[Rfam]
RNA sequence: AUGGUUUUUGGCCAUUUGGGUUAAAGUUUCAAUUAGUUGGGGAUGUUAAAGUUUCCAAAGCAUAGAUUAAAAAUCACCAAUAUCAAACAGCACCGUGCUUUCUUUUUUGCUCUGCACUGUGCUCCCUGUCUCCUGGUACCAUU
Numbered sequence: 001a002u003g004g005u006u007u008u009u010g011g012c013c014a015u016u017u018g019g020g021u022u023a024a025a026g027u028u029u030c031a032a033u034u035a036g037u038u039g040g041g042g043a044u045g046u047u048a049a050a051g052u053u054u055c056c057a058a059a060g061c062a063u064a065g066a067u068u069a070a071a072a073a074u075c076a077c078c079a080a081u082a083u084c085a086a087a088c089a090g091c092a093c094c095g096u097g098c099u100u101u102c103u104u105u106u107u108u109g110c111u112c113u114g115c116a117c118u119g120u121g122c123u124c125c126c127u128g129u130c131u132c133c134u135g136g137u138a139c140c141a142u143u
Stems, first nucleotide, its partner, number of pairs: 004061005016049004021043002076137004082131001089123003093119001095117003
The family of this 143-nucleotide sequence from Prunus yedoensis is "small nucleolar RNA snoR137". A search with the family's covariance model found it, with a score of 60 bits. Lineage of the source: Eukaryota > Streptophyta > rosids > Rosaceae > Prunus yedoensis.